[Rfam]
RNA sequence: UCGGCCCCGGUUCACGUCCGGCACCCAACCCUCCCGUCCGCCGAGGGCAGGAGGGGCCCGUCGACCCGGAGCC
Number, nucleotide and partner (000 for none) at each position: 001u000002c000003g073004g072005c071006c000007c069008c068009g067010g066011u000012u000013c000014a000015c063016g062017u000018c060019c000020g058021g057022c056023a000024c000025c000026c000027a000028a000029c000030c000031c000032u000033c000034c000035c000036g000037u000038c000039c000040g000041c000042c000043g000044a000045g000046g000047g000048c000049a000050g000051g000052a000053g000054g000055g000056g022057c021058c020059c000060g018061u000062c016063g015064a000065c000066c010067c009068g008069g007070a000071g005072c004073c003
RNA: L31-Actinobacteria ribosomal protein leader